[Rfam]
RNA sequence: GCGUUUGUAGCUCAGCUGGAUAGAGCACAGGCCUCCGACGCCUGGUGUCAAGGGUUCGAAUCCCUCCAAACGCA
Numbered sequence: 001g002c003g004u005u006u007g008u009a010g011c012u013c014a015g016c017u018g019g020a021u022a023g024a025g026c027a028c029a030g031g032c033c034u035c036c037g038a039c040g041c042c043u044g045g046u047g048u049c050a051a052g053g054g055u056u057c058g059a060a061u062c063c064c065u066c067c068a069a070a071c072g073c074a
Stems, first nucleotide, its partner, number of pairs: 001073007010026004028044005051065004
tRNA: a 74-nucleotide RNA sequence from Lachnospiraceae bacterium KH1T2. It scores 62 bits against the family's covariance model. Pairs were carried over by alignment from the consensus structure, which is taken from published work.